[Rfam]
RNA sequence: CUGCGUGACGAAGCACGCAAGCCAGGCAACAAUAACGCCUGAGCUCCGAGACAGUCGCCCAACGCCGGUUAAGCCGGCGUUUUUUU
Numbered sequence: 001c002u003g004c005g006u007g008a009c010g011a012a013g014c015a016c017g018c019a020a021g022c023c024a025g026g027c028a029a030c031a032a033u034a035a036c037g038c039c040u041g042a043g044c045u046c047c048g049a050g051a052c053a054g055u056c057g058c059c060c061a062a063c064g065c066c067g068g069u070u071a072a073g074c075c076g077g078c079g080u081u082u083u084u085u086u
Stems, first nucleotide, its partner, number of pairs: 016057002021039001023037001061081008